The family of this 176-nucleotide RNA from Geotalea daltonii is "6S / SsrS RNA". Rfam classes the family as a non-coding RNA gene.
[Rfam]
RNA sequence: UUCUCUCUGCCCUGUUCGUGAGGUAUUAAAGCCCCUGCGGAAUAAUCAUUGAACGGGCGCCUUUUUAAGCUGUGGUGUGCUGCCCCUUUGCGGGAAUUGCCUGAAGCAGCAUUAAAGGAGCCCACCUGUUAGGGAACUCGCUGUGAGGCCCCGACCAACGGCAUGGUGGAGAGAUA
Numbered sequence: 001u002u003c004u005c006u007c008u009g010c011c012c013u014g015u016u017c018g019u020g021a022g023g024u025a026u027u028a029a030a031g032c033c034c035c036u037g038c039g040g041a042a043u044a045a046u047c048a049u050u051g052a053a054c055g056g057g058c059g060c061c062u063u064u065u066u067a068a069g070c071u072g073u074g075g076u077g078u079g080c081u082g083c084c085c086c087u088u089u090g091c092g093g094g095a096a097u098u099g100c101c102u103g104a105a106g107c108a109g110c111a112u113u114a115a116a117g118g119a120g121c122c123c124a125c126c127u128g129u130u131a132g133g134g135a136a137c138u139c140g141c142u143g144u145g146a147g148g149c150c151c152c153g154a155c156c157a158a159c160g161g162c163a164u165g166g167u168g169g170a171g172a173g174a175u176a
Base pairs, nucleotide, nucleotide: 002174003173004172005171006170007169008168009167010166011165013163014162015161017160018159019158031149032148033147034145035143037141038140039139055123056122057121060118061117062116063115064114067112069110070109071108072107073106079100080099084094085093086092

Description: The sequence is in the family's curated seed alignment. The family has 150 seed sequences and 5,006 matches in Rfam 15.1. For this family Rfam cites "6S RNA regulates E. coli RNA polymerase activity" (Wassarman and Storz, Cell, 2000).